[Rfam]
mir-359 microRNA precursor family: an 83-nucleotide RNA sequence from Caenorhabditis briggsae. For this family Rfam cites "Patterns of flanking sequence conservation and a characteristic upstream motif for microRNA gene identification" (Ohler et al., RNA, 2004).

RNA sequence: AAAUCUUCAUCCGUCAGAGCAUAUCUCAGUUACACAACUUCCUAAAUAGUGUCACUGGUUAUCCUCUGUCGAAAUGAAGAUGU
Numbered sequence: 001a002a003a004u005c006u007u008c009a010u011c012c013g014u015c016a017g018a019g020c021a022u023a024u025c026u027c028a029g030u031u032a033c034a035c036a037a038c039u040u041c042c043u044a045a046a047u048a049g050u051g052u053c054a055c056u057g058g059u060u061a062u063c064c065u066c067u068g069u070c071g072a073a074a075u076g077a078a079g080a081u082g083u
Base pairs, nucleotide, nucleotide: 003081004080005079006078007077008076009075010074012071013070015068016067017066018065019064021062022061027057028056029055030054032052033051034050035049

Rfam 15.1 lists 5 matches to the family in 5 species.